Description:
This 75-nucleotide RNA from Usitatibacter rugosus belongs to the Rfam family "SAH (S-adenosyl-L-homocysteine) riboswitch aptamer". The family's consensus secondary structure is taken from published work. It scores 63 bits against the family's covariance model. Rfam 15.1 lists 1,354 matches to the family in 1,132 species.
RNA sequence: UUCCUCGAGGAGCGUUGCAACGGACUCCCUGUCCGCCAGGCUCGAGGUUACCUACCGCAACCGCGCUCGUUAACC
Numbered sequence: 001u002u003c004c005u006c007g008a009g010g011a012g013c014g015u016u017g018c019a020a021c022g023g024a025c026u027c028c029c030u031g032u033c034c035g036c037c038a039g040g041c042u043c044g045a046g047g048u049u050a051c052c053u054a055c056c057g058c059a060a061c062c063g064c065g066c067u068c069g070u071u072a073a074c075c
Stems, first nucleotide, its partner, number of pairs: 003047006021035005